[Rfam]
RNA sequence: GAAACUUCAUUGACGAGAACGAGUACGCUUAAUCUGUUCGUCCCCCAGAGAGCUGGCGAUUGCUGAAAGCCAGCGUUCGAACGAAAGCGGAAAAUCAUCUCCGAGAAGCAGUGCUGAAACUUGUUGUUGCCGAUUGGAUAGGCGGGUUUAAUCCGUUUGCCAUGACGGCGCAGGGAAUAAGGACUGACGGCCUGUCCUCCGUUACAAGGACCGCGAAUAGGCUAUAUUCGCGCCAGAGGUGCCGCAAGCGGCUGGGUUAUGUCCAGGAUCGCAGGCGGAACGAGGGUGGUAUCGCGAGCACAAGUCUCGUCCCUUUU
Numbered sequence: 001g002a003a004a005c006u007u008c009a010u011u012g013a014c015g016a017g018a019a020c021g022a023g024u025a026c027g028c029u030u031a032a033u034c035u036g037u038u039c040g041u042c043c044c045c046c047a048g049a050g051a052g053c054u055g056g057c058g059a060u061u062g063c064u065g066a067a068a069g070c071c072a073g074c075g076u077u078c079g080a081a082c083g084a085a086a087g088c089g090g091a092a093a094a095u096c097a098u099c100u101c102c103g104a105g106a107a108g109c110a111g112u113g114c115u116g117a118a119a120c121u122u123g124u125u126g127u128u129g130c131c132g133a134u135u136g137g138a139u140a141g142g143c144g145g146g147u148u149u150a151a152u153c154c155g156u157u158u159g160c161c162a163u164g165a166c167g168g169c170g171c172a173g174g175g176a177a178u179a180a181g182g183a184c185u186g187a188c189g190g191c192c193u194g195u196c197c198u199c200c201g202u203u204a205c206a207a208g209g210a211c212c213g214c215g216a217a218u219a220g221g222c223u224a225u226a227u228u229c230g231c232g233c234c235a236g237a238g239g240u241g242c243c244g245c246a247a248g249c250g251g252c253u254g255g256g257u258u259a260u261g262u263c264c265a266g267g268a269u270c271g272c273a274g275g276c277g278g279a280a281c282g283a284g285g286g287u288g289g290u291a292u293c294g295c296g297a298g299c300a301c302a303a304g305u306c307u308c309g310u311c312c313c314u315u316u317u
Base pairs, nucleotide, nucleotide: 007106008105015101016100017099018098026089027088028087029086030085043075052074053073054072055071056070057069109186110185111184112183114181115180188201189200190199242278243277244276245275248272249271250270251269283314284313285312286311294310295309296308297307298306
The family of this 317-nucleotide RNA sequence from Paenibacillus radicis is "T-box leader". Rfam 15.1 lists 19,395 matches to the family in 1,923 species. Rfam describes the family as follows. Uncharged tRNA acts as the effector for transcription antitermination of genes in the T-box leader family. It scores 103 bits against the family's covariance model. Its family is annotated with tRNA binding in the Gene Ontology.